[Rfam]
RNA sequence: CUUGUAUGUAAAUUAUAAUCCACACAUACAUCGACACAUAAGGCGGGGUGCUUGUCUAAGAACAGGUCGGCUUAUGGGAUGUAUGGAGGCUUAAC
Numbered sequence: 001c002u003u004g005u006a007u008g009u010a011a012a013u014u015a016u017a018a019u020c021c022a023c024a025c026a027u028a029c030a031u032c033g034a035c036a037c038a039u040a041a042g043g044c045g046g047g048g049u050g051c052u053u054g055u056c057u058a059a060g061a062a063c064a065g066g067u068c069g070g071c072u073u074a075u076g077g078g079a080u081g082u083a084u085g086g087a088g089g090c091u092u093a094a095c
Stems, first nucleotide, its partner, number of pairs: 025085008037076006044069002050067005
RNA: t44 RNA
Organism: Idiomarina loihiensis